[Rfam]
RNA sequence: UGAGAGAAUGAUGUUGAAGGAACUCGGCAAAUUGACUCCGUAACUUCGGGAUAAGGAGUGCCUUGAUGGGGGAAACCCUAUUAAGGUGGCACAUAAGAGGGAGUAGCGACUGUUUAACUAAAACACAGGGCUCUGCGAAGAAGAAAUUCGAUGUAUAGGGUCUGACGCCUGCCCGGUGCUGGAAGGUUAAGAGGAGGUGUGCAAGCACUGAAUUGAAGCCCCAGUAAACGGCGGCCGUAAAUCUAACGGUCCUAAGGUAGCGAAAUUCCUUGUCGGGUAAGUUCCGACCUGCAUGAAUGGCGUAACGACUUCUCCACUGUCUCCAACAUCAACUCA
Numbered sequence: 001u002g003a004g005a006g007a008a009u010g011a012u013g014u015u016g017a018a019g020g021a022a023c024u025c026g027g028c029a030a031a032u033u034g035a036c037u038c039c040g041u042a043a044c045u046u047c048g049g050g051a052u053a054a055g056g057a058g059u060g061c062c063u064u065g066a067u068g069g070g071g072g073a074a075a076c077c078c079u080a081u082u083a084a085g086g087u088g089g090c091a092c093a094u095a096a097g098a099g100g101g102a103g104u105a106g107c108g109a110c111u112g113u114u115u116a117a118c119u120a121a122a123a124c125a126c127a128g129g130g131c132u133c134u135g136c137g138a139a140g141a142a143g144a145a146a147u148u149c150g151a152u153g154u155a156u157a158g159g160g161u162c163u164g165a166c167g168c169c170u171g172c173c174c175g176g177u178g179c180u181g182g183a184a185g186g187u188u189a190a191g192a193g194g195a196g197g198u199g200u201g202c203a204a205g206c207a208c209u210g211a212a213u214u215g216a217a218g219c220c221c222c223a224g225u226a227a228a229c230g231g232c233g234g235c236c237g238u239a240a241a242u243c244u245a246a247c248g249g250u251c252c253u254a255a256g257g258u259a260g261c262g263a264a265a266u267u268c269c270u271u272g273u274c275g276g277g278u279a280a281g282u283u284c285c286g287a288c289c290u291g292c293a294u295g296a297a298u299g300g301c302g303u304a305a306c307g308a309c310u311u312c313u314c315c316a317c318u319g320u321c322u323c324c325a326a327c328a329u330c331a332a333c334u335c336a
Base pairs, nucleotide, nucleotide: 001336002335003334004333009331010330011329012328013327014326015325016324018322019321020320035059036058037057038056039055044049060087061086062085063084064083065082066081067080068079069078070077071076088092100315101314102313103312105310106309107307108306111125112124113123128163129162130161131160132159133158134157135156136153140149141148142147166302167301168300169299171232172231173230176229177228178225179224180223181222182221185220186219187218191214192213196209197208198207199206200205233251234250235249236248237247238246252256262289272288273287274286275285276284277283
The record is a 336-nucleotide part of an RNA from Holospora undulata, which matches "Bacterial large subunit ribosomal RNA" in Rfam.
Rfam 15.1 lists 51,934 matches to the family in 10,816 species.
The family's consensus secondary structure is taken from published work.
A reference for the family is Yusupov et al. (2001), "Crystal structure of the ribosome at 5.5 A resolution", Science.